[Rfam]
RNA sequence: UGUAAAAAGUUGUGUAAGUCGCUCUGGAUAAGAGCGUCUGCUAAAUGCCUGUAA
Numbered sequence: 001u002g003u004a005a006a007a008a009g010u011u012g013u014g015u016a017a018g019u020c021g022c023u024c025u026g027g028a029u030a031a032g033a034g035c036g037u038c039u040g041c042u043a044a045a046u047g048c049c050u051g052u053a054a
Stems, first nucleotide, its partner, number of pairs: 013043001014041003020036006

Overview:
Rfam assigns this 54-nucleotide RNA sequence to the family "UnaL2 LINE 3' element". On this family, see Baba et al., RNA 2004: "Solution structure of an RNA stem-loop derived from the 3' conserved region of eel LINE UnaL2". The eel long interspersed element (LINE) UnaL2 and its partner short interspersed element (SINE) share a conserved 3' tail containing a stem-loop that is critical for their retrotransposition. Presumably, the first step of retrotransposition is the recognition of their 3' tails by UnaL2-encoded reverse transcriptase. Rfam classes the family as a cis-regulatory element. Rfam's curators put it in the seed alignment.